[Rfam]
RNA: Arthropod 7SK RNA
RNA sequence: GGAAGCAUGUGUGGGAUGGCACAACUGAGGAUUGAUCGUUAUAUAGAUUACUAUGUGACAUCUUCUCAGUUAGUGUUGUCUAUAAUAUAUUAUCUUGAGCUUUCAGAUCGUAAGCUUCUUGAUUUCAGACUCCCGAUUGCGCAUGCAACUUCGUUCUAAGAUCACGGAUUUGCGCGCCUGCACGGUCGAGUCUCUUUGUUCCUCGUAGUACCGCGAUUUCCAAAUUUGGGGGGUAAUCGAAUUGGUCAGAGGUCGCUUCCACAUGCAGGCACUGCUGAUGGCAGUACGCCAUCUUUUUUUG
Numbered sequence: 001g002g003a004a005g006c007a008u009g010u011g012u013g014g015g016a017u018g019g020c021a022c023a024a025c026u027g028a029g030g031a032u033u034g035a036u037c038g039u040u041a042u043a044u045a046g047a048u049u050a051c052u053a054u055g056u057g058a059c060a061u062c063u064u065c066u067c068a069g070u071u072a073g074u075g076u077u078g079u080c081u082a083u084a085a086u087a088u089a090u091u092a093u094c095u096u097g098a099g100c101u102u103u104c105a106g107a108u109c110g111u112a113a114g115c116u117u118c119u120u121g122a123u124u125u126c127a128g129a130c131u132c133c134c135g136a137u138u139g140c141g142c143a144u145g146c147a148a149c150u151u152c153g154u155u156c157u158a159a160g161a162u163c164a165c166g167g168a169u170u171u172g173c174g175c176g177c178c179u180g181c182a183c184g185g186u187c188g189a190g191u192c193u194c195u196u197u198g199u200u201c202c203u204c205g206u207a208g209u210a211c212c213g214c215g216a217u218u219u220c221c222a223a224a225u226u227u228g229g230g231g232g233g234u235a236a237u238c239g240a241a242u243u244g245g246u247c248a249g250a251g252g253u254c255g256c257u258u259c260c261a262c263a264u265g266c267a268g269g270c271a272c273u274g275c276u277g278a279u280g281g282c283a284g285u286a287c288g289c290c291a292u293c294u295u296u297u298u299u300u301g
Stems, first nucleotide, its partner, number of pairs: 001260006015080003025069003029065003034062003038059004044053001268290003271285005